Record summary:
Rfam assigns this 81-nucleotide RNA sequence from Natronincola peptidivorans to the family "Glycine riboswitch aptamer". The source organism's lineage runs through Bacteria, Bacillati, Clostridia, Peptostreptococcales and Natronincola. It scores 48 bits against the family's covariance model.
[Rfam]
RNA sequence: CUCUGGAAAGCUAAGAACUAAUUUAGCACCGAAGGAGCAAUUUCUAGAUUUAGAAAGAAACUCUCAGGUAAACCAACAGAG
Numbered sequence: 001c002u003c004u005g006g007a008a009a010g011c012u013a014a015g016a017a018c019u020a021a022u023u024u025a026g027c028a029c030c031g032a033a034g035g036a037g038c039a040a041u042u043u044c045u046a047g048a049u050u051u052a053g054a055a056a057g058a059a060a061c062u063c064u065c066a067g068g069u070a071a072a073c074c075a076a077c078a079g080a081g
Stems, first nucleotide, its partner, number of pairs: 001081005011026004028069003031065002035063003041056006